[Rfam]
This 96-nucleotide RNA sequence from Catagonus wagneri belongs to the Rfam family "Vault RNA". Taxonomically the source falls in Catagonus (Eukaryota, Metazoa, Vertebrata, Theria). The family has 73 seed sequences and 2,873 matches in Rfam 15.1. Pairs were carried over by alignment from the consensus structure, which is taken from published work.
RNA sequence: GGGCUGGCUUUAGCUCAGCGGUUCCUUCGACUUUGCAUUGUGUAAACCACCCUUUCGAGGGAGGUUCGAGACCCGCGGGCGCUCUCCAACCCUUUU
Numbered sequence: 001g002g003g004c005u006g007g008c009u010u011u012a013g014c015u016c017a018g019c020g021g022u023u024c025c026u027u028c029g030a031c032u033u034u035g036c037a038u039u040g041u042g043u044a045a046a047c048c049a050c051c052c053u054u055u056c057g058a059g060g061g062a063g064g065u066u067c068g069a070g071a072c073c074c075g076c077g078g079g080c081g082c083u084c085u086c087c088a089a090c091c092c093u094u095u096u
Base pairs, nucleotide, nucleotide: 002091003090005088006087007086013080014079015078016077018076019075020074021073026070027069028068029067030066